Small nucleolar RNA SNORA33: a 136-nucleotide RNA from Sphenodon punctatus.
The base pairs follow the family's consensus structure, which was predicted with PFOLD.
ACA33 is a member of the H/ACA class of snoRNA that guide the sites of modification of uridines to pseudouridines.
Taxonomically the source falls in Sphenodon (Eukaryota, Gnathostomata, Teleostomi, Dipnotetrapodomorpha).
By type it is an H/ACA-box small nucleolar RNA.
RNA sequence: ACGCCAGUAAAUUACAUCUGCUCAACUCCGAAAUGUUCUGCAGAAAUAAUUGAAUGGGAGGCUGGCUAUAAUAAUGCCGUAGCACGAGCCGUGAGAGACUCUGUUGUCCUCAUGGUCCCAGAAAACGGCUACAGCU
Numbered sequence: 001a002c003g004c005c006a007g008u009a010a011a012u013u014a015c016a017u018c019u020g021c022u023c024a025a026c027u028c029c030g031a032a033a034u035g036u037u038c039u040g041c042a043g044a045a046a047u048a049a050u051u052g053a054a055u056g057g058g059a060g061g062c063u064g065g066c067u068a069u070a071a072u073a074a075u076g077c078c079g080u081a082g083c084a085c086g087a088g089c090c091g092u093g094a095g096a097g098a099c100u101c102u103g104u105u106g107u108c109c110u111c112a113u114g115g116u117c118c119c120a121g122a123a124a125a126c127g128g129c130u131a132c133a134g135c136u
Stems, first nucleotide, its partner, number of pairs: 003066005017044005076129004088116007097108003